[Rfam]
A member of the RNA family "Small nucleolar RNA snoR104" from Lupinus albus, 117 nucleotides long.
It is annotated as an H/ACA-box small nucleolar RNA.
RNA sequence: GGGGAGCAUCCAGAUGCUGGGAUGUUACCUGAUACAAUCUUCCUAUAUAAAAAACUGUUGUUUCCUGCUUCUAGUACUUGAGCAAGUCCUGCAAGUCUCAAAUAUACAGUGACAAGU
Numbered sequence: 001g002g003g004g005a006g007c008a009u010c011c012a013g014a015u016g017c018u019g020g021g022a023u024g025u026u027a028c029c030u031g032a033u034a035c036a037a038u039c040u041u042c043c044u045a046u047a048u049a050a051a052a053a054a055c056u057g058u059u060g061u062u063u064c065c066u067g068c069u070u071c072u073a074g075u076a077c078u079u080g081a082g083c084a085a086g087u088c089c090u091g092c093a094a095g096u097c098u099c100a101a102a103u104a105u106a107c108a109g110u111g112a113c114a115a116g117u
Stems, first nucleotide, its partner, number of pairs: 001030003005026007054110003067096004072091003076087003

Background:
The family's consensus secondary structure was predicted with WAR. For this family Rfam cites "Experimental RNomics: identification of 140 candidates for small non-messenger RNAs in the plant Arabidopsis thaliana" (Marker et al., Curr Biol, 2002). Gene Ontology terms of the family: nucleolus and RNA processing. Lineage of the source: Eukaryota > Gunneridae > fabids > Fabaceae > Lupinus.